RNA sequence: UUUAAGACUGCCUCGAUGAGCCAACUAUACAGAUAUCUGUAAAGCUGGUUUAUCGAGGCAGUCUUUAA
Numbered sequence: 001u002u003u004a005a006g007a008c009u010g011c012c013u014c015g016a017u018g019a020g021c022c023a024a025c026u027a028u029a030c031a032g033a034u035a036u037c038u039g040u041a042a043a044g045c046u047g048g049u050u051u052a053u054c055g056a057g058g059c060a061g062u063c064u065u066u067a068a
Base pairs, nucleotide, nucleotide: 004065005064006063007062008061009060010059011058012057013056014055015054016053017052018051019050020049021048022047023046025044026043028041029040030039031038032037
RNA: mir-9424 microRNA precursor family
Organism: Nematostella vectensis